[Rfam]
RNA: L31-Actinobacteria ribosomal protein leader
RNA sequence: CUGCCUCCGGUUCACCCCGACGGACGACACGGGGACCCGGCGGCC
Numbered sequence: 001c002u003g004c005c006u007c008c009g010g011u012u013c014a015c016c017c018c019g020a021c022g023g024a025c026g027a028c029a030c031g032g033g034g035a036c037c038c039g040g041c042g043g044c045c
Stems, first nucleotide, its partner, number of pairs: 003045001005043001007040004015034005022028001